[Rfam]
RNA sequence: AACUGGGCCGGGCCUGGAGGGGCGCCACCCCUCCCCCUCUUAAAGGGGGCCGUAGGUGAACGGGGGCCGAAACUCCACCCCGCUACUGAUUAGCCCAGUGUCGGGCCAUGGGCACCGCUAUGAAGGCCAGCCCCCUGAGACGCCCAUCACCCACGCCUACAGCCGUAGGGCUGUGGGUAGUGGGGUUCCGGUGAACCGGGUUAGGCCCGGGAGGGAGCGGCCCUAAGCCGGGGUGGGCGUGUUCAGGGGUCCACUGGCCUGAGCAUGGGCCUAUGGCUACGGCUGAGACUAGUCGGUGGUGGGGUGGGGGUUGGGCCCAUGU
Numbered sequence: 001a002a003c004u005g006g007g008c009c010g011g012g013c014c015u016g017g018a019g020g021g022g023c024g025c026c027a028c029c030c031c032u033c034c035c036c037c038u039c040u041u042a043a044a045g046g047g048g049g050c051c052g053u054a055g056g057u058g059a060a061c062g063g064g065g066g067c068c069g070a071a072a073c074u075c076c077a078c079c080c081c082g083c084u085a086c087u088g089a090u091u092a093g094c095c096c097a098g099u100g101u102c103g104g105g106c107c108a109u110g111g112g113c114a115c116c117g118c119u120a121u122g123a124a125g126g127c128c129a130g131c132c133c134c135c136u137g138a139g140a141c142g143c144c145c146a147u148c149a150c151c152c153a154c155g156c157c158u159a160c161a162g163c164c165g166u167a168g169g170g171c172u173g174u175g176g177g178u179a180g181u182g183g184g185g186u187u188c189c190g191g192u193g194a195a196c197c198g199g200g201u202u203a204g205g206c207c208c209g210g211g212a213g214g215g216a217g218c219g220g221c222c223c224u225a226a227g228c229c230g231g232g233g234u235g236g237g238c239g240u241g242u243u244c245a246g247g248g249g250u251c252c253a254c255u256g257g258c259c260u261g262a263g264c265a266u267g268g269g270c271c272u273a274u275g276g277c278u279a280c281g282g283c284u285g286a287g288a289c290u291a292g293u294c295g296g297u298g299g300u301g302g303g304g305u306g307g308g309g310g311u312u313g314g315g316c317c318c319a320u321g322u
Base pairs, nucleotide, nucleotide: 001322004319005318006317007316008315009314011068012067013066014065015064016034017033018032019031020030021029022028070312071311073309074308075307076306077305078304079303080302081301082300083299084298085297086295088293091291092290093289096287100283101282102281103280105277106276107275108274109273110272111271112270113269115267117264118263119262124260125259126258127257128256129255130254132249133248134247135246136245137244138243139242140240141239142238143237144236145235146234147233150184151183152182153181154180155178156177157176158175159174160173161172162171163170164169188231189230190229191228192227198223199222200221201220206215207214208213